[Rfam]
RNA sequence: GUAUGGGUGACCAUACAUCUGAAGGAAGCGGGACUGCAAAUUCCGGUACUGACGCAUAGGAACGUCAUACAGAGGCCAAAUGAGGUGGAUAAGUGAGCACAUCUUCACAACGUCCCUGACCAACAAACCUCAUAGGGUAGAUGACGCAGGAAUCGGAAGAAGCCUACGCGG
Numbered sequence: 001g002u003a004u005g006g007g008u009g010a011c012c013a014u015a016c017a018u019c020u021g022a023a024g025g026a027a028g029c030g031g032g033a034c035u036g037c038a039a040a041u042u043c044c045g046g047u048a049c050u051g052a053c054g055c056a057u058a059g060g061a062a063c064g065u066c067a068u069a070c071a072g073a074g075g076c077c078a079a080a081u082g083a084g085g086u087g088g089a090u091a092a093g094u095g096a097g098c099a100c101a102u103c104u105u106c107a108c109a110a111c112g113u114c115c116c117u118g119a120c121c122a123a124c125a126a127a128c129c130u131c132a133u134a135g136g137g138u139a140g141a142u143g144a145c146g147c148a149g150g151a152a153u154c155g156g157a158a159g160a161a162g163c164c165u166a167c168g169c170g171g
Stems, first nucleotide, its partner, number of pairs: 001016006029170002032167001036164001041158006047151001049149003063146006075138003080133006087115004093108004
Rfam assigns this 171-nucleotide sequence from Marinoscillum furvescens to the family "Group II catalytic intron D1-D4-3". Taxonomically the source falls in Marinoscillum furvescens (Bacteria, Bacteroidota, Cytophagales, Reichenbachiellaceae). Rfam's curators write: Group II introns are found in rRNA, tRNA and mRNA of organelles in fungi, plants and protists, and also in mRNA in bacteria.